This 132-nucleotide sequence from Mus spicilegus belongs to the Rfam family "Small nucleolar RNA SNORA17". Taxonomically the source falls in Mus (Eukaryota, Deuterostomia, Teleostomi, Muroidea). snoRNA ACA 17 belongs to the H/ACA family of snoRNAs and is predicted to guide pseudouridylation of the 28S rRNA at positions U4659 and U4598. It shares the same host gene together with ACA43. Clan: SNORA17 clan. Rfam classes the family as an H/ACA-box small nucleolar RNA.

RNA sequence: CCCACCCCUGGAGGCCCUGCAGAUGUGGCUGCUGUGUCACAUGUGUGUCAGUAGGUGGCAGAGAGGAGAGAGACCAUGUCUCUGCUCAGAGUUCUGAUCUAUGAACAUCUGAAUGAUUAGUAGCCCAACAUU
Numbered sequence: 001c002c003c004a005c006c007c008c009u010g011g012a013g014g015c016c017c018u019g020c021a022g023a024u025g026u027g028g029c030u031g032c033u034g035u036g037u038c039a040c041a042u043g044u045g046u047g048u049c050a051g052u053a054g055g056u057g058g059c060a061g062a063g064a065g066g067a068g069a070g071a072g073a074c075c076a077u078g079u080c081u082c083u084g085c086u087c088a089g090a091g092u093u094c095u096g097a098u099c100u101a102u103g104a105a106c107a108u109c110u111g112a113a114u115g116a117u118u119a120g121u122a123g124c125c126c127a128a129c130a131u132u
Stems, first nucleotide, its partner, number of pairs: 002061001005058002007055004013049003019046003024041006068129001072125001074123001076121002083115002086112004091106004